[Rfam]
RNA sequence: AAGGAGGUAGCCGAAAAUCUUAAAAAGAGUAGGUA
Numbered sequence: 001a002a003g004g005a006g007g008u009a010g011c012c013g014a015a016a017a018u019c020u021u022a023a024a025a026a027g028a029g030u031a032g033g034u035a
Stems, first nucleotide, its partner, number of pairs: 002021004010034003